[Rfam]
Rfam assigns this 135-nucleotide sequence from Tupaia belangeri to the family "U4 spliceosomal RNA". Rfam 15.1 lists 32,178 matches to the family in 2,547 species. It is annotated as a spliceosomal small nuclear RNA. A search with the family's covariance model found it, with a score of 74 bits.
RNA sequence: AGCUUUGCGCAGUGGCAGUAUCGUAGCCAAUGAGGUUUAUCCGAGGUGCGAUUAUUGCUAAUCAAAAACUUUUCACAUGGAAGGUCAGACAAAGGGAUGGAUUAUUUUUUUUUUUUUUGAGAGAACUGUUGAUUU
Numbered sequence: 001a002g003c004u005u006u007g008c009g010c011a012g013u014g015g016c017a018g019u020a021u022c023g024u025a026g027c028c029a030a031u032g033a034g035g036u037u038u039a040u041c042c043g044a045g046g047u048g049c050g051a052u053u054a055u056u057g058c059u060a061a062u063c064a065a066a067a068a069c070u071u072u073u074c075a076c077a078u079g080g081a082a083g084g085u086c087a088g089a090c091a092a093a094g095g096g097a098u099g100g101a102u103u104a105u106u107u108u109u110u111u112u113u114u115u116u117u118u119g120a121g122a123g124a125a126c127u128g129u130u131g132a133u134u135u
Stems, first nucleotide, its partner, number of pairs: 020052005026047003034042002085122002088118002091115006